The record is a 259-nucleotide part of an RNA from Methanobacterium sp. A39, which matches "Archaeal large subunit ribosomal RNA" in Rfam. The match comes from Rfam's covariance-model search (2889 bits). The family's consensus secondary structure is taken from published work. The family has 91 seed sequences and 2,955 matches in Rfam 15.1.

[Rfam]
RNA sequence: GAGUUUGCUGUUGUGGCGAGACUAAAAGGUUUGAGCCUUGUAGUCGUAGGGAAACCGACAUGUCCGCAGUUUUCCAGGGACGAGGUCUUAAUAGGGCCUGUAGUCACAGCGGUAAAACCCGAAGCCGGUCGAUCUAACCCCGGGUAGGAUGAAGUCGCUCUUACGAGUGAUGGAGGUCCGAAGCGUUGUUGUCGUGCAAAACACUCGUAUAACCUGGGGCUAGUGGUGAAAGGCCAAUCAAGGCCGGUGACAGCUGGUU
Numbered sequence: 001g002a003g004u005u006u007g008c009u010g011u012u013g014u015g016g017c018g019a020g021a022c023u024a025a026a027a028g029g030u031u032u033g034a035g036c037c038u039u040g041u042a043g044u045c046g047u048a049g050g051g052a053a054a055c056c057g058a059c060a061u062g063u064c065c066g067c068a069g070u071u072u073u074c075c076a077g078g079g080a081c082g083a084g085g086u087c088u089u090a091a092u093a094g095g096g097c098c099u100g101u102a103g104u105c106a107c108a109g110c111g112g113u114a115a116a117a118c119c120c121g122a123a124g125c126c127g128g129u130c131g132a133u134c135u136a137a138c139c140c141c142g143g144g145u146a147g148g149a150u151g152a153a154g155u156c157g158c159u160c161u162u163a164c165g166a167g168u169g170a171u172g173g174a175g176g177u178c179c180g181a182a183g184c185g186u187u188g189u190u191g192u193c194g195u196g197c198a199a200a201a202c203a204c205u206c207g208u209a210u211a212a213c214c215u216g217g218g219g220c221u222a223g224u225g226g227u228g229a230a231a232g233g234c235c236a237a238u239c240a241a242g243g244c245c246g247g248u249g250a251c252a253g254c255u256g257g258u259u
Stems, first nucleotide, its partner, number of pairs: 005115013020045004026039004049056002062081004069074001084098004118257002121254001125247006134223003138219007145211001147179004154171007183208003188204002191202002225235003